[Rfam]
RNA sequence: UCAAAGCACACUUGUACGUUGCUCUGGAUAAGAGCAUCUGCCAAAUGCCAGAAA
Numbered sequence: 001u002c003a004a005a006g007c008a009c010a011c012u013u014g015u016a017c018g019u020u021g022c023u024c025u026g027g028a029u030a031a032g033a034g035c036a037u038c039u040g041c042c043a044a045a046u047g048c049c050a051g052a053a054a
Stems, first nucleotide, its partner, number of pairs: 013043001014041003020036006
The family of this 54-nucleotide sequence from Hemibagrus wyckioides is "UnaL2 LINE 3' element". Rfam classes the family as a cis-regulatory element. Lineage of the source: Eukaryota > Opisthokonta > Bilateria > Vertebrata > Hemibagrus. The family has 30 seed sequences and 493,311 matches in Rfam 15.1. From the family's description: The eel long interspersed element (LINE) UnaL2 and its partner short interspersed element (SINE) share a conserved 3' tail containing a stem-loop that is critical for their retrotransposition. Presumably, the first step of retrotransposition is the recognition of their 3' tails by UnaL2-encoded reverse transcriptase. The solution structure of a 17-nucleotide RNA derived from the 3' tail of UnaL2 was determined by NMR.